Rfam assigns this 101-nucleotide sequence from Veillonella dispar to the family "SAM riboswitch aptamer (S box leader)". The family's consensus secondary structure is taken from published work. Rfam's curators put it in the seed alignment.

RNA sequence: AACUCAUCAAGAGUAGUGGAGGGAUAGGCCCUGUGAAGCUACAGCAACCAUUCCAAGAGGAAAAGGUGCUAAUUCCUAUGACAAAUGUCGUUAGAUGGGAG
Number, nucleotide and partner (000 for none) at each position: 001a000002a000003c099004u098005c097006a096007u095008c094009a000010a000011g000012a000013g042014u041015a040016g039017u038018g000019g000020a000021g031022g030023g029024a000025u078026a077027g076028g075029c023030c022031c021032u000033g000034u000035g000036a000037a000038g017039c016040u015041a014042c013043a070044g069045c068046a067047a000048c066049c065050a000051u062052u061053c060054c059055a000056a000057g000058a000059g054060g053061a052062a051063a000064a000065g049066g048067u046068g045069c044070u043071a000072a000073u000074u093075c028076c027077u026078a025079u090080g089081a088082c087083a000084a000085a000086u000087g082088u081089c080090g079091u000092u000093a074094g008095a007096u006097g005098g004099g003100a000101g000